Shown here is a 383-nucleotide part of an RNA from Companilactobacillus allii, a member of the family "Bacterial large subunit ribosomal RNA". The base pairs follow the family's consensus structure, which is taken from published work. Taxonomically the source falls in Companilactobacillus (Bacteria, Bacillati, Bacilli, Lactobacillales).
RNA sequence: GAAAGAUCAGUGAGAAUCUGAUCGGCCGAAAGACUAAGGUUUCCUGGGGAAGGCUCGUCCUCCCAGGGUUAGUCGGGGCCUAAGAUGAGACCGAGAGGUGUAAUCGAUGGAUAACGGGUUGAUAUUCCCGUACUAGUUUAUUUUGUUUGAACGAUGGAAGGACGCAGGAGGAUGAUGUGUGCACACGGCUGGAAAAGUGUGUCCAAUCAGAAAGUCUUGGUAAGAGUCAAAUGCUUUUACCUUUAAGGACAAUCUGUGAUGGGGAGCGAAAUUUAAGUAGCGAAGCACAGUAACUCACACUGCCAAGAAAAGUUCCUAGUUAGAAAUAAACUACCCGUACCGCAAACCGACACAGGUAGUCGAGGAGAGAAUCCUAAGGUCAG
Number, nucleotide and partner (000 for none) at each position: 001g000002a000003a000004a000005g023006a022007u021008c020009a019010g018011u000012g000013a000014g000015a000016a000017u000018c010019u009020g008021a007022u006023c005024g381025g380026c379027c378028g000029a000030a000031a000032g361033a360034c359035u358036a000037a000038g341039g340040u000041u000042u000043c067044c066045u065046g064047g063048g062049g000050a000051a000052g060053g059054c000055u000056c000057g000058u000059c053060c052061u000062c048063c047064c046065a045066g044067g043068g000069u000070u000071a000072g000073u000074c337075g336076g335077g334078g000079c110080c109081u000082a000083a000084g105085a104086u103087g000088a101089g000090a099091c098092c097093g000094a000095g000096a000097g092098g091099u090100g000101u088102a000103a086104u085105c084106g000107a000108u000109g080110g079111a000112u000113a000114a131115c130116g129117g128118g127119u000120u000121g000122a000123u000124a000125u000126u000127c118128c117129c116130g115131u114132a000133c000134u333135a332136g331137u330138u329139u328140a327141u326142u325143u324144u323145g000146u000147u000148u000149g000150a000151a320152c319153g000154a000155u000156g316157g315158a314159a313160g000161g000162a000163c000164g303165c302166a301167g300168g000169a000170g296171g295172a000173u000174g000175a000176u289177g288178u287179g286180u000181g202182c201183a200184c199185a198186c197187g000188g000189c000190u000191g000192g000193a000194a000195a000196a000197g186198u185199g184200u183201g182202u181203c262204c261205a000206a000207u000208c256209a255210g254211a000212a000213a000214g250215u249216c248217u000218u000219g241220g240221u239222a238223a236224g235225a000226g234227u233228c000229a000230a000231a000232u000233g227234c226235u224236u223237u000238u222239a221240c220241c219242u000243u000244u000245a000246a000247g000248g216249a215250c214251a000252a000253u000254c210255u209256g208257u000258g000259a000260u000261g204262g203263g000264g000265a000266g281267c280268g000269a278270a000271a000272u000273u000274u000275a000276a000277g000278u269279a000280g267281c266282g000283a000284a000285g000286c179287a178288c177289a176290g000291u000292a000293a000294c000295u171296c170297a000298c000299a000300c167301u166302g165303c164304c000305a000306a000307g000308a000309a000310a000311a000312g000313u159314u158315c157316c156317u000318a000319g152320u151321u000322a000323g144324a143325a142326a141327u140328a139329a138330a137331c136332u135333a134334c077335c076336c075337g074338u000339a000340c039341c038342g000343c000344a000345a000346a000347c356348c355349g000350a000351c000352a000353c000354a000355g348356g347357u000358a035359g034360u033361c032362g000363a375364g374365g373366a372367g000368a000369g000370a000371a000372u366373c365374c364375u363376a000377a000378g027379g026380u025381c024382a000383g000